A member of the RNA family "EcpR1" from Propylenella binzhouense, 109 nucleotides long. A search with the family's covariance model found it, with a score of 94 bits. The organism belongs to Propylenella, within Bacteria. Rfam's curators write: Perviously named SmelC291, SmrC10, or Sra33. Rfam classes the family as a small RNA. The base pairs follow the family's consensus structure, which was predicted with WAR.

RNA sequence: AUACCCCAUGGAUUUGCUCAGGUCCGCCGCAUCUCCUGGGUCCGUGGGGUCGGCCGGCCGGCCGUGGUGAUUGGCCUCCUCGUACAGCCACGGUUCGGCCGGCCUCUUU
Numbered sequence: 001a002u003a004c005c006c007c008a009u010g011g012a013u014u015u016g017c018u019c020a021g022g023u024c025c026g027c028c029g030c031a032u033c034u035c036c037u038g039g040g041u042c043c044g045u046g047g048g049g050u051c052g053g054c055c056g057g058c059c060g061g062c063c064g065u066g067g068u069g070a071u072u073g074g075c076c077u078c079c080u081c082g083u084a085c086a087g088c089c090a091c092g093g094u095u096c097g098g099c100c101g102g103c104c105u106c107u108u109u
Stems, first nucleotide, its partner, number of pairs: 003050008017040006052104009